[Rfam]
Shown here is a 78-nucleotide sequence from Musa acuminata, a member of the family "Small nucleolar RNA snoR53Y". It scores 58 bits against the family's covariance model. The family is grouped with related families in Rfam's "snoR53 clan". Lineage of the source: Eukaryota > Viridiplantae > Embryophyta > Musa > Musa acuminata. Rfam classes the family as a C/D-box small nucleolar RNA. Gene Ontology terms of the family: RNA processing and nucleolus.
RNA sequence: GUUCCCAAUGAUGCCUAUGUUAACCAUGCUAAUGCUGAAAUACUUUGAAGAUAAUUUGUUGUUUGACCUGAGGGAACC
Numbered sequence: 001g002u003u004c005c006c007a008a009u010g011a012u013g014c015c016u017a018u019g020u021u022a023a024c025c026a027u028g029c030u031a032a033u034g035c036u037g038a039a040a041u042a043c044u045u046u047g048a049a050g051a052u053a054a055u056u057u058g059u060u061g062u063u064u065g066a067c068c069u070g071a072g073g074g075a076a077c078c
Stems, first nucleotide, its partner, number of pairs: 001077005